[Rfam]
Nucleotides: 094
Stems, first nucleotide, its partner, number of pairs: 010094004016088006024081002031076007
Number, partner (000 for none) and nucleotide at each position: 001000u002000a003000c004000g005000g006000g007000a008000a009000c010094a011093c012092a013091c014000g015000a016088u017087c018086g019085c020084a021083a022000a023000u024081c025080u026000g027000a028000c029000g030000c031076g032075u033074c034073g035072c036071g037070c038000g039000g040000g041000u042000g043000a044000c045000a046000c047000u048000c049000a050000c051000c052000u053000c054000a055000g056000g057000c058000c059000u060000c061000u062000u063000u064000c065000g066000c067000c068000g069000u070037g071036c072035g073034c074033g075032a076031c077000u078000u079000g080025g081024g082000a083021u084020u085019g086018c087017g088016g089000a090000c091013g092012u093011g094010u